RNA sequence: AGGCAUAUCCGUAGACCUUGCCUGAUUCUGCUUAUGGUCAGGCAAGGGGGACAGUAUAUGCAAGAGUAAUAUGGAGUUUGUGCAAACUCUAACCAGCUUGUUCAGUAGCUGGAUAAAUUGCAGUACUCCCAACAUUU
Numbered sequence: 001a002g003g004c005a006u007a008u009c010c011g012u013a014g015a016c017c018u019u020g021c022c023u024g025a026u027u028c029u030g031c032u033u034a035u036g037g038u039c040a041g042g043c044a045a046g047g048g049g050g051a052c053a054g055u056a057u058a059u060g061c062a063a064g065a066g067u068a069a070u071a072u073g074g075a076g077u078u079u080g081u082g083c084a085a086a087c088u089c090u091a092a093c094c095a096g097c098u099u100g101u102u103c104a105g106u107a108g109c110u111g112g113a114u115a116a117a118u119u120g121c122a123g124u125a126c127u128c129c130c131a132a133c134a135u136u137u
Base pairs, nucleotide, nucleotide: 003061004060005059006058007057008056016047017046018045019044020043021042022041023040024039073129074128075127076126078125081122082121083120093112094111095110096109097108
RNA: Small nucleolar RNA SNORA58